RNA sequence: GACUCCACCUAUGACGUUCUGUGCCUAAACCUGCCAGGAGGUACAGAGCCGAUGCAGAGGAGAC
Dot-bracket structure: (.(((..........((((((((((....(((...))).))))))))))..........))).)
Numbered sequence: 001g002a003c004u005c006c007a008c009c010u011a012u013g014a015c016g017u018u019c020u021g022u023g024c025c026u027a028a029a030c031c032u033g034c035c036a037g038g039a040g041g042u043a044c045a046g047a048g049c050c051g052a053u054g055c056a057g058a059g060g061a062g063a064c
Stems, first nucleotide, its partner, number of pairs: 001064001003062003016049010030038003